[Rfam]
RNA sequence: UUUAAUAUACAGGGGAGGUUCACGCCUGAGAGGAGAUAUUAUCUCGACCCUUAACCUGAUUUGGAUAAUGCCAACGUAGGGAGUUUUUAUGCAAGAAAA
Numbered sequence: 001u002u003u004a005a006u007a008u009a010c011a012g013g014g015g016a017g018g019u020u021c022a023c024g025c026c027u028g029a030g031a032g033g034a035g036a037u038a039u040u041a042u043c044u045c046g047a048c049c050c051u052u053a054a055c056c057u058g059a060u061u062u063g064g065a066u067a068a069u070g071c072c073a074a075c076g077u078a079g080g081g082a083g084u085u086u087u088u089a090u091g092c093a094a095g096a097a098a099a
Stems, first nucleotide, its partner, number of pairs: 007086001009084002011051004017026003033045005055080004061074004
Dot-bracket structure: ......(.((((((..(((....)))......(((((...)))))..))))...((((..((((......))))..))))..)).).............

Shown here is a 99-nucleotide RNA from Clostridium cavendishii, a member of the family "TPP riboswitch aptamer (THI element)". A search with the family's covariance model found it, with a score of 62 bits. The source organism's lineage runs through Bacteria, Eubacteriales, Clostridiaceae, Clostridium and Clostridium cavendishii.